The record is an 86-nucleotide RNA from Erinaceus europaeus, which matches "Small nucleolar RNA SNORD70" in Rfam. It is one of the family's seed sequences. Rfam describes the family as follows. snoRNA HBII-234 belongs to the C/D family of snoRNAs. It is the human orthologue of the mouse MBII-234 and is predicted to guide 2'O-ribose methylation of the small 18S rRNA on position A512. It is hosted, together with HBII-95, by the core C/D box snoRNA protein encoding gene NOP5/NOP58. Its family is annotated with nucleolus and RNA processing in the Gene Ontology. It is annotated as a C/D-box small nucleolar RNA. The family has 21 seed sequences and 1,085 matches in Rfam 15.1.

Nucleotides: 086
Stems, first nucleotide, its partner, number of pairs: 003084010
Number, partner (000 for none) and nucleotide at each position: 001000a002000c003084c004083a005082a006081u007080g008079u009078u010077g011076u012075c013000a014000a015000u016000g017000a018000u019000g020000c021000a022000u023000u024000c025000a026000u027000c028000c029000g030000g031000a032000a033000c034000u035000g036000a037000a038000u039000u040000u041000a042000a043000g044000u045000g046000a047000u048000c049000u050000a051000a052000c053000u054000c055000a056000a057000a058000u059000u060000c061000g062000u063000c064000a065000c066000u067000a068000c069000c070000a071000c072000u073000g074000a075012g076011a077010c078009a079008a080007c081006a082005u083004u084003g085000a086000g